[Rfam]
RNA sequence: GGCCCUGGACGGCCUGGACACCGACGAGGACCUCGCCGAGGACGACCUCG
Numbered sequence: 001g002g003c004c005c006u007g008g009a010c011g012g013c014c015u016g017g018a019c020a021c022c023g024a025c026g027a028g029g030a031c032c033u034c035g036c037c038g039a040g041g042a043c044g045a046c047c048u049c050g
Stems, first nucleotide, its partner, number of pairs: 002019001004017002007014002037050005
Dot-bracket structure: .(.((.((....)).)).).................(((((....)))))

Rfam assigns this 50-nucleotide sequence from Streptomyces vinaceus to the family "Guanidine-II riboswitch aptamer (mini-ykkC)". A search with the family's covariance model found it, with a score of 32 bits. Pairs were carried over by alignment from the consensus structure, which is taken from published work.